The record is a 227-nucleotide RNA sequence from Miscanthus lutarioriparius, which matches "MIR6217 microRNA precursor family" in Rfam. The source organism's lineage runs through Eukaryota, Euphyllophyta, Spermatophyta, Poaceae and Miscanthus. It scores 134 bits against the family's covariance model. The base pairs follow the family's consensus structure, which was predicted with RNAalifold. Rfam 15.1 lists 2,266 matches to the family in 13 species.
RNA sequence: UAGCAUUAUGAUAAGUUAUUCUAUAGCCACUUUGAGUUACGAUAAUUACUAUACUAAUUUACGAGAUUAUGGUAACUCCCUCGUAAGUGAUUUGCUAUAGCAUUAUGGUAAGUAUCAUCUUGAAUUAUAGUAACCCAUGUAUCGUAAAUAUGUAUUAUCAUUAUCGUAAAUUGGUACAAACAUAAUCGUAAAUCAAGGUGGCUAUAGAAUAAGUUAUUCUAUGGCUA
Numbered sequence: 001u002a003g004c005a006u007u008a009u010g011a012u013a014a015g016u017u018a019u020u021c022u023a024u025a026g027c028c029a030c031u032u033u034g035a036g037u038u039a040c041g042a043u044a045a046u047u048a049c050u051a052u053a054c055u056a057a058u059u060u061a062c063g064a065g066a067u068u069a070u071g072g073u074a075a076c077u078c079c080c081u082c083g084u085a086a087g088u089g090a091u092u093u094g095c096u097a098u099a100g101c102a103u104u105a106u107g108g109u110a111a112g113u114a115u116c117a118u119c120u121u122g123a124a125u126u127a128u129a130g131u132a133a134c135c136c137a138u139g140u141a142u143c144g145u146a147a148a149u150a151u152g153u154a155u156u157a158u159c160a161u162u163a164u165c166g167u168a169a170a171u172u173g174g175u176a177c178a179a180a181c182a183u184a185a186u187c188g189u190a191a192a193u194c195a196a197g198g199u200g201g202c203u204a205u206a207g208a209a210u211a212a213g214u215u216a217u218u219c220u221a222u223g224g225c226u227a
Stems, first nucleotide, its partner, number of pairs: 001227004007221002010218005016212018037191007045183002050178001052176011065165003069161003074155001081146001087142003092137001093132008103122001108116001